[Rfam]
RNA sequence: ACACAUUCAAAUAUUUUCGCCUAUAUAAUGUCAAAAUGUGGUUGACGAGUAUCUACCCAACGCCGUAAACGUUGGACUAUAGGAUUCUUUUAAUCGACA
Numbered sequence: 001a002c003a004c005a006u007u008c009a010a011a012u013a014u015u016u017u018c019g020c021c022u023a024u025a026u027a028a029u030g031u032c033a034a035a036a037u038g039u040g041g042u043u044g045a046c047g048a049g050u051a052u053c054u055a056c057c058c059a060a061c062g063c064c065g066u067a068a069a070c071g072u073u074g075g076a077c078u079a080u081a082g083g084a085u086u087c088u089u090u091u092a093a094u095c096g097a098c099a
Stems, first nucleotide, its partner, number of pairs: 020083006029047006057075006
A member of the RNA family "Purine riboswitch aptamer" from Pediococcus claussenii, 99 nucleotides long. The match comes from Rfam's covariance-model search (64 bits). The source organism's lineage runs through Bacteria, Lactobacillales, Lactobacillaceae, Pediococcus and Pediococcus claussenii.